Shown here is a 116-nucleotide RNA sequence from Camelus dromedarius, a member of the family "Small nucleolar RNA SNORD89". From the family's description: snoRNA HBII-289 belongs to the family of C/D snoRNAs. It is the human orthologue of the mouse MBII-289 and has no identified RNA target. The family's consensus secondary structure was predicted with RNAalifold. By type it is a C/D-box small nucleolar RNA. The match comes from Rfam's covariance-model search (73 bits). Its family is annotated with nucleolus and RNA processing in the Gene Ontology.
[Rfam]
RNA sequence: UUUGGGGAAGGAUGACAAUAAAAGGCCAAAUUACAGUGUCUCCAUCAGCAGUUCGCUGUCUUUGAGGAUGCACAAUGGCAAAAUCUCCCAAAACAAGCCAUUGGUCUGACCUCAGU
Numbered sequence: 001u002u003u004g005g006g007g008a009a010g011g012a013u014g015a016c017a018a019u020a021a022a023a024g025g026c027c028a029a030a031u032u033a034c035a036g037u038g039u040c041u042c043c044a045u046c047a048g049c050a051g052u053u054c055g056c057u058g059u060c061u062u063u064g065a066g067g068a069u070g071c072a073c074a075a076u077g078g079c080a081a082a083a084u085c086u087c088c089c090a091a092a093a094c095a096a097g098c099c100a101u102u103g104g105u106c107u108g109a110c111c112u113c114a115g116u
Stems, first nucleotide, its partner, number of pairs: 002115006014106003025034001035102004041096001045091001048088001051073002054070002057067001075086001077084001